[Rfam]
Background: A member of the RNA family "mir-184 microRNA precursor family" from Candidula unifasciata, 80 nucleotides long. Rfam links the family to the GO terms RISC complex and gene silencing by miRNA. For this family Rfam cites "The developmental miRNA profiles of zebrafish as determined by small RNA cloning" (Chen et al., Genes Dev, 2005). Pairs were carried over by alignment from the consensus structure, which was predicted with PFOLD.

RNA sequence: AAGUCUACGUUUCCUUGUCAUUUCUUCAGCCCGUCUGUAAGAAAGAACUGGACGGAGAACUGAUAAGGGCUUGUGGGCUA
Numbered sequence: 001a002a003g004u005c006u007a008c009g010u011u012u013c014c015u016u017g018u019c020a021u022u023u024c025u026u027c028a029g030c031c032c033g034u035c036u037g038u039a040a041g042a043a044a045g046a047a048c049u050g051g052a053c054g055g056a057g058a059a060c061u062g063a064u065a066a067g068g069g070c071u072u073g074u075g076g077g078c079u080a
Stems, first nucleotide, its partner, number of pairs: 012069009022059006030051002